[Rfam]
RNA: tRNA
RNA sequence: GACUCAGUAGCUCAGCUGGUAGAGCACAUCCCUUUUAAGGAUGGGGUCCAGGGUUCGAGCCCCUGCUGGGUCA
Dot-bracket structure: (((((((..((((........)))).(((((.......))))).....(((((.......)))))))))))).